[Rfam]
The family of this 52-nucleotide RNA sequence from Methylobrevis albus is "serC leader". The base pairs follow the family's consensus structure. The organism belongs to Methylobrevis, within Bacteria. It is annotated as a cis-regulatory leader.
RNA sequence: UCCCGGGACACCCUUCCCCAACGAAGGGCACCUAUCUGAGAGGAUAGACAGA
Numbered sequence: 001u002c003c004c005g006g007g008a009c010a011c012c013c014u015u016c017c018c019c020a021a022c023g024a025a026g027g028g029c030a031c032c033u034a035u036c037u038g039a040g041a042g043g044a045u046a047g048a049c050a051g052a
Stems, first nucleotide, its partner, number of pairs: 011028006032047006
It scores 63 bits against the family's covariance model.
The literature on the family includes a 2005 paper in Genome Biol by Corbino et al., "Evidence for a second class of S-adenosylmethionine riboswitches and other regulatory RNA motifs in alpha-proteobacteria".
Rfam's curators write: This family is a putative regulatory RNA structure that is found upstream of the serC-serA operon in some alpha-proteobacteria. The final stem of the structure overlaps the ribosome binding site of the serC reading frame.